[Rfam]
RNA sequence: UCCCGCUGCCCAUGGCGGGCGUUUCCUCCCUUGCACUCGGCCUCGCUCGCGCAUCGAGCGAGGCCUUUUUGUUUCAGG
Numbered sequence: 001u002c003c004c005g006c007u008g009c010c011c012a013u014g015g016c017g018g019g020c021g022u023u024u025c026c027u028c029c030c031u032u033g034c035a036c037u038c039g040g041c042c043u044c045g046c047u048c049g050c051g052c053a054u055c056g057a058g059c060g061a062g063g064c065c066u067u068u069u070u071g072u073u074u075c076a077g078g
Base pairs, nucleotide, nucleotide: 008020009019010018011017041063042062043061044060045059046058047057048056049055
Notes:
This 78-nucleotide RNA from Methylobacterium durans belongs to the Rfam family "Makes More Granules Regulator RNA (mmgR)". The source organism's lineage runs through Bacteria, Pseudomonadati, Alphaproteobacteria, Hyphomicrobiales and Methylobacterium. Gene Ontology terms of the family: protein binding, DNA-templated transcription, termination and response to nitrogen compound. The family is grouped with related families in Rfam's "suhB sRNA clan". The match comes from Rfam's covariance-model search (45 bits).